[Rfam]
RNA sequence: CAACCUAUACAGUGAUGUGUAGCUGAGACAUGAGAAGUCAGCAGAAGUCAUAGUACUAAAUGGAUAUAUACAUUUAGGAAGGAC
Numbered sequence: 001c002a003a004c005c006u007a008u009a010c011a012g013u014g015a016u017g018u019g020u021a022g023c024u025g026a027g028a029c030a031u032g033a034g035a036a037g038u039c040a041g042c043a044g045a046a047g048u049c050a051u052a053g054u055a056c057u058a059a060a061u062g063g064a065u066a067u068a069u070a071c072a073u074u075u076a077g078g079a080a081g082g083a084c
Stems, first nucleotide, its partner, number of pairs: 001025002005022007038045002047084003056077006
RNA: Group II catalytic intron D1-D4-1
Organism: Sedimentibacter sp. zth1